[Rfam]
RNA sequence: UUGCUAUUUAAAAUGGUGUUUUCGAUAACGUUUUUCAUUAAUGUUUAAUGACUAGUCGCGUACCGUUGCACAGCCGUAGCGG
Numbered sequence: 001u002u003g004c005u006a007u008u009u010a011a012a013a014u015g016g017u018g019u020u021u022u023c024g025a026u027a028a029c030g031u032u033u034u035u036c037a038u039u040a041a042u043g044u045u046u047a048a049u050g051a052c053u054a055g056u057c058g059c060g061u062a063c064c065g066u067u068g069c070a071c072a073g074c075c076g077u078a079g080c081g082g
Stems, first nucleotide, its partner, number of pairs: 002081006012067007023058004032054001035051007
Rfam assigns this 82-nucleotide RNA from Rhynchophorus ferrugineus to the family "mir-1923 microRNA precursor family". The base pairs follow the family's consensus structure, which was predicted with RNAalifold. The match comes from Rfam's covariance-model search (98 bits). Gene Ontology terms of the family: RISC complex and miRNA-mediated post-transcriptional gene silencing.